[Rfam]
RNA sequence: CCUGUCAUCACAUCCUCGCGACUAAUGACAACCUUUACCCGGCCCCUGCCGUUAAAGCCUCUCAUUAGCCGCGCGAACCGCUGCAAUGCAAGAUCCUGUUAAAACAACAACAUAUGACGCCGACUGGCUAUCGAUUCCUGGAAAAAAGGGGCCUUAACAGGCCCCUUUCU
Number, nucleotide and partner (000 for none) at each position: 001c092002c000003u090004g089005u000006c088007a087008u000009c000010a000011c083012a082013u000014c000015c000016u000017c075018g074019c073020g072021a000022c068023u067024a066025a065026u064027g063028a062029c000030a000031a000032c000033c000034u000035u000036u000037a000038c000039c000040c000041g000042g000043c000044c000045c000046c000047u000048g000049c000050c000051g000052u000053u000054a000055a000056a000057g000058c000059c000060u000061c000062u028063c027064a026065u025066u024067a023068g022069c000070c000071g000072c020073g019074c018075g017076a000077a000078c000079c000080g000081c000082u012083g011084c000085a000086a000087u007088g006089c004090a003091a000092g001093a000094u000095c000096c000097u000098g124099u123100u000101a000102a000103a000104a000105c000106a000107a000108c000109a000110a000111c000112a000113u000114a000115u000116g000117a000118c000119g000120c000121c000122g000123a099124c098125u000126g000127g000128c000129u000130a000131u000132c000133g000134a000135u000136u000137c000138c000139u000140g000141g000142a000143a000144a000145a000146a000147a000148g165149g164150g163151g162152c161153c160154u000155u000156a000157a000158c000159a000160g153161g152162c151163c150164c149165c148166u000167u000168u000169c000170u000
Rfam assigns this 170-nucleotide sequence from Affinibrenneria salicis to the family "SraG RNA". Gene Ontology terms of the family: mRNA binding and sRNA-mediated gene silencing. The source organism's lineage runs through Bacteria, Pseudomonadati, Pseudomonadota, Enterobacterales and Affinibrenneria. This RNA was discovered in E. coli during a large scale screen. Evidence was found for specific cleavage of this RNA.